[Rfam]
Nucleotides: 130
Base pairs, nucleotide, nucleotide: 002058003057004056005055006054007053008052014045015044016043017042018041019040020039021038023036024035025034067127069126070125072123073122074121075120085113086112087111088110089109091106092105093104094103
Number, partner (000 for none) and nucleotide at each position: 001000c002058c003057c004056u005055g006054u007053a008052u009000c010000g011000a012000a013000a014045g015044g016043u017042g018041a019040u020039c021038a022000c023036g024035g025034c026000g027000u028000c029000u030000u031000g032000u033000a034025g035024c036023c037000a038021u039020g040019g041018u042017c043016a044015u045014u046000u047000a048000a049000u050000a051000a052008a053007u054006a055005c056004a057003g058002g059000a060000a061000c062000a063000u064000g065000a066000a067127c068000c069126u070125g071000c072123g073122a074121g075120c076000c077000u078000u079000u080000c081000c082000c083000g084000u085113g086112u087111u088110u089109g090000a091106a092105g093104g094103a095000u096000u097000a098000a099000c100000a101000g102000u103094u104093c105092c106091u107000g108000u109089c110088a111087g112086a113085c114000c115000c116000u117000g118000g119000c120075g121074c122073u123072c124000u125070c126069a127067g128000a129000c130000a
Rfam assigns this 130-nucleotide sequence from Amphiprion ocellaris to the family "Small nucleolar RNA SNORA71". The family's consensus secondary structure was predicted with PFOLD. About the family: The members of this family belong to the H/ACA class of snoRNAs which bind a number of proteins (including dyskerin, Gar1p and Nop10p) to form snoRNP complexes. This class of snoRNAs are thought to guide the sites of modification of uridines to pseudouridines by forming direct base pairing interactions with substrate RNAs. This family includes U71 (SNORA71), ACA39 (SNORA39) and ACA60 (SNORA60). U71 and ACA60 are predicted to guide the pseudouridylation of U406 and U1004 in 18S rRNA respectively. There is currently no target RNA identified for ACA39. Taxonomically the source falls in Amphiprion (Eukaryota, Deuterostomia, Gnathostomata, Euacanthomorphacea). A search with the family's covariance model found it, with a score of 71 bits. For this family Rfam cites "The family of box ACA small nucleolar RNAs is defined by an evolutionarily conserved secondary structure and ubiquitous sequence elements essential for RNA accumulation" (Ganot et al., Genes Dev, 1997).